RNA sequence: UUGCAUCUCACGGGGUGCCCCAUCCGGGGCUGAGAGGAGUUUCUCCAACCCGACGAACCUGAUCCGGGUCAUGCCGGCGGAGGGAUAGAGCCAUGCAGACAUU
Numbered sequence: 001u002u003g004c005a006u007c008u009c010a011c012g013g014g015g016u017g018c019c020c021c022a023u024c025c026g027g028g029g030c031u032g033a034g035a036g037g038a039g040u041u042u043c044u045c046c047a048a049c050c051c052g053a054c055g056a057a058c059c060u061g062a063u064c065c066g067g068g069u070c071a072u073g074c075c076g077g078c079g080g081a082g083g084g085a086u087a088g089a090g091c092c093a094u095g096c097a098g099a100c101a102u103u
Stems, first nucleotide, its partner, number of pairs: 007090003011052004017030005037045003058083003064077004